[Rfam]
RNA sequence: AGCUAUUUUGACGGGUUUCGUGACAGGCGAGCAUAAAAUUGACAGUUGUUCGUUGUCGACGAAACCUGCCUGAAAUAGCC
Numbered sequence: 001a002g003c004u005a006u007u008u009u010g011a012c013g014g015g016u017u018u019c020g021u022g023a024c025a026g027g028c029g030a031g032c033a034u035a036a037a038a039u040u041g042a043c044a045g046u047u048g049u050u051c052g053u054u055g056u057c058g059a060c061g062a063a064a065c066c067u068g069c070c071u072g073a074a075a076u077a078g079c080c
Base pairs, nucleotide, nucleotide: 002079003078004077005076006075012068013067014066015065016064017063018062019061020060029051030050031049032048033047
A member of the RNA family "mir-981 microRNA precursor family" from Acanthosepion pharaonis, 80 nucleotides long. It scores 63 bits against the family's covariance model. Lineage of the source: Eukaryota > Protostomia > Lophotrochozoa > Decapodiformes > Acanthosepion. On this family, see Mead and Tu, BMC Genomics 2008: "Cloning, characterization, and expression of microRNAs from the Asian malaria mosquito, Anopheles stephensi".